[Rfam]
The family of this 102-nucleotide sequence from Priestia megaterium is "Purine riboswitch aptamer". Riboswitches are metabolite binding domains within certain messenger RNAs that serve as precision sensors for their corresponding targets. Allosteric rearrangement of mRNA structure is mediated by ligand binding, and this results in modulation of gene expression. A class of riboswitches that selectively recognises guanine and becomes saturated at concentrations as low as 5 nM. In Bacillus subtilis, this mRNA motif is located on at least five separate transcriptional units that together encode 17 genes that are mostly involved in purine transport and purine nucleotide biosynthesis. It has also been shown that some members of this family are specific for adenine instead.
RNA sequence: AAAAGCUAAAUACGGUUCACUCAUAUAUGUUUGAGAAUAUGGCUCAGACGUUUCUACCUUAUCACCGUAAAUGAUAGGACUAUGAGUAAAAAGUGAAUCUAG
Numbered sequence: 001a002a003a004a005g006c007u008a009a010a011u012a013c014g015g016u017u018c019a020c021u022c023a024u025a026u027a028u029g030u031u032u033g034a035g036a037a038u039a040u041g042g043c044u045c046a047g048a049c050g051u052u053u054c055u056a057c058c059u060u061a062u063c064a065c066c067g068u069a070a071a072u073g074a075u076a077g078g079a080c081u082a083u084g085a086g087u088a089a090a091a092a093g094u095g096a097a098u099c100u101a102g
Stems, first nucleotide, its partner, number of pairs: 019087007029049007058078007
NCBI's taxonomy places the organism under Bacteria, Bacillati, Caryophanales, Priestia, Priestia megaterium.